[Rfam]
Nucleotides: 131
Stems, first nucleotide, its partner, number of pairs: 011129008022111003029105006
Number, partner (000 for none) and nucleotide at each position: 001000g002000a003000g004000g005000c006000a007000u008000g009000c010000u011129g012128a013127g014126c015125c016124c017123c018122g019000c020000a021000g022111c023110g024109g025000c026000g027000c028000c029105u030104g031103g032102g033101u034100g035000a036000u037000u038000g039000c040000u041000g042000c043000g044000g045000c046000u047000g048000g049000a050000a051000a052000a053000g054000c055000c056000g057000g058000a059000g060000g061000g062000c063000c064000c065000g066000c067000a068000a069000g070000g071000a072000a073000c074000c075000u076000c077000g078000g079000u080000c081000c082000g083000a084000g085000a086000c087000g088000g089000a090000c091000c092000g093000g094000a095000u096000g097000c098000g099000a100034u101033a102032c103031c104030c105029g106000a107000c108000a109024c110023c111022g112000g113000a114000g115000a116000g117000a118000u119000c120000u121000a122018c123017g124016g125015g126014g127013c128012u129011u130000u131000u